The record is an 81-nucleotide RNA sequence from Danionella cerebrum, which matches "mir-26 microRNA precursor family" in Rfam. NCBI's taxonomy places the organism under Eukaryota, Chordata, Craniata, Neopterygii, Danionella.
[Rfam]
RNA sequence: CUGUUACCUAGUUCAAGUAAUCCAGGAUAGGCUGUGAGGAUCACGGCCGGCCUGUUCUCGGUUACUUGCUCUGGGUAGCCG
Numbered sequence: 001c002u003g004u005u006a007c008c009u010a011g012u013u014c015a016a017g018u019a020a021u022c023c024a025g026g027a028u029a030g031g032c033u034g035u036g037a038g039g040a041u042c043a044c045g046g047c048c049g050g051c052c053u054g055u056u057c058u059c060g061g062u063u064a065c066u067u068g069c070u071c072u073g074g075g076u077a078g079c080c081g
Stems, first nucleotide, its partner, number of pairs: 003079003007075005014068009024058010
Dot-bracket structure: ..(((.(((((..(((((((((.((((((((((...............)))))))))).)))))))))..))))).)))..

The literature on the family includes a 2002 paper in Curr Biol by Lagos-Quintana et al., "Identification of tissue-specific microRNAs from mouse".